[Rfam]
Nucleotides: 090
Stems, first nucleotide, its partner, number of pairs: 002017005019044009045059004
Number, partner (000 for none) and nucleotide at each position: 001000c002017a003016a004015c005014g006013c007000a008000a009000u010000a011000c012000u013006g014005c015004g016003u017002u018000u019044u020043a021042u022041g023040c024039g025038g026037u027036g028000a029000u030000u031000u032000a033000c034000c035000c036027u037026g038025c039024c040023g041022c042021g043020u044019a045059g046058c047057g048056a049000a050000u051000a052000g053000a054000a055000c056048u057047c058046g059045c060000a061000u062000c063000g064000g065000a066000c067000u068000u069000c070000u071000u072000u073000a074000a075000g076000g077000a078000g079000a080000a081000a082000a083000a084000a085000a086000u087000c088000a089000u090000g
A member of the RNA family "freshwater-2 RNA", 90 nucleotides long.